[Rfam]
RNA sequence: UCUCCUUGUUCUGGGCAAAGUGGCAUCAACUUCAUGGUGCUCAUCUUAUAUCAACCAGGGGCAAAACAAUCCCAUGUUUAGCCCAGCAUGGCUUUUGAUCUGUGCCUUUGCCUGGUUCAUGCCUUGGACACACAU
Numbered sequence: 001u002c003u004c005c006u007u008g009u010u011c012u013g014g015g016c017a018a019a020g021u022g023g024c025a026u027c028a029a030c031u032u033c034a035u036g037g038u039g040c041u042c043a044u045c046u047u048a049u050a051u052c053a054a055c056c057a058g059g060g061g062c063a064a065a066a067c068a069a070u071c072c073c074a075u076g077u078u079u080a081g082c083c084c085a086g087c088a089u090g091g092c093u094u095u096u097g098a099u100c101u102g103u104g105c106c107u108u109u110g111c112c113u114g115g116u117u118c119a120u121g122c123c124u125u126g127g128a129c130a131c132a133c134a135u
Base pairs, nucleotide, nucleotide: 001063003061004060005059006058007057008056012053013052014051018047019046020045022041023040024039025038026037027036075130076129077128078127079126080125090123091122092121096119097118098117100115101114102113104111105110
Dot-bracket structure: (.((((((...(((...(((.((((((........))))))...)))...)))..)))))).)...........((((((.........(((...(((.(((.((....)).))).))).))).)))))).....